The family of this 97-nucleotide sequence from Vagococcus lutrae is "Enterococcus sRNA 84". It scores 79 bits against the family's covariance model.

RNA sequence: AACCAACAACAACCUUUUUAUUUUUCAUUUUACUCUCAUCCUAAAGAGUAAAAUACUCCUUUUUCCACUGCUGAUAUGAUUAGCAGUGGUUUUUUUG
Numbered sequence: 001a002a003c004c005a006a007c008a009a010c011a012a013c014c015u016u017u018u019u020a021u022u023u024u025u026c027a028u029u030u031u032a033c034u035c036u037c038a039u040c041c042u043a044a045a046g047a048g049u050a051a052a053a054u055a056c057u058c059c060u061u062u063u064u065c066c067a068c069u070g071c072u073g074a075u076a077u078g079a080u081u082a083g084c085a086g087u088g089g090u091u092u093u094u095u096u097g
Stems, first nucleotide, its partner, number of pairs: 029053001030051006065089011